[Rfam]
RNA sequence: CUUCUUCGAUCUGUUGGGGGCAGAUGAAGUGGAUGUGAGCGUCCAUGCCGCCUGCGGUGAUGAUUUUGCCUUCGCCUGCAAUGGCUUCGGUGCCCGGCCCGAUGAUGAUGUUGACGCCGUUCUGGGUGUCCGGAUUGCCUGCCUUGCCGAUGCCGCAGAUGGUGCCAUCCUUGAGGCCAAUAUCGGCCUUGUAGAUGCCGGUAUAGUCAACAAUCAGGGCGUUGGUGAUGACGGUGUCCACGGCUCCAUCAGCGCGGGCGAUCUGGGACUGGCCCAUGCCAUCGCGGAUG
Numbered sequence: 001c002u003u004c005u006u007c008g009a010u011c012u013g014u015u016g017g018g019g020g021c022a023g024a025u026g027a028a029g030u031g032g033a034u035g036u037g038a039g040c041g042u043c044c045a046u047g048c049c050g051c052c053u054g055c056g057g058u059g060a061u062g063a064u065u066u067u068g069c070c071u072u073c074g075c076c077u078g079c080a081a082u083g084g085c086u087u088c089g090g091u092g093c094c095c096g097g098c099c100c101g102a103u104g105a106u107g108a109u110g111u112u113g114a115c116g117c118c119g120u121u122c123u124g125g126g127u128g129u130c131c132g133g134a135u136u137g138c139c140u141g142c143c144u145u146g147c148c149g150a151u152g153c154c155g156c157a158g159a160u161g162g163u164g165c166c167a168u169c170c171u172u173g174a175g176g177c178c179a180a181u182a183u184c185g186g187c188c189u190u191g192u193a194g195a196u197g198c199c200g201g202u203a204u205a206g207u208c209a210a211c212a213a214u215c216a217g218g219g220c221g222u223u224g225g226u227g228a229u230g231a232c233g234g235u236g237u238c239c240a241c242g243g244c245u246c247c248a249u250c251a252g253c254g255c256g257g258g259c260g261a262u263c264u265g266g267g268a269c270u271g272g273c274c275c276a277u278g279c280c281a282u283c284g285c286g287g288a289u290g
Stems, first nucleotide, its partner, number of pairs: 001290001003288001005286001007284003011158004016154002018076002022072002031052002034050002037048001039046001057069003078147001081144001083142001090138001092135001094133002096130003099125002102123001104121003107117001164273004171267002174264003177260001186220006201208001223257001225255001230250002234246001236244001
5' ureB small RNA: a 290-nucleotide RNA from Cohaesibacter sp. ES.047. On this family, see Wen et al., J Bacteriol 2013: "Helicobacter pylori 5'ureB-sRNA, a cis-encoded antisense small RNA, negatively regulates ureAB expression by transcription termination". It scores 167 bits against the family's covariance model. The family's consensus secondary structure was predicted with mfold. The source organism's lineage runs through Bacteria, Pseudomonadati, Alphaproteobacteria, Cohaesibacteraceae and Cohaesibacter.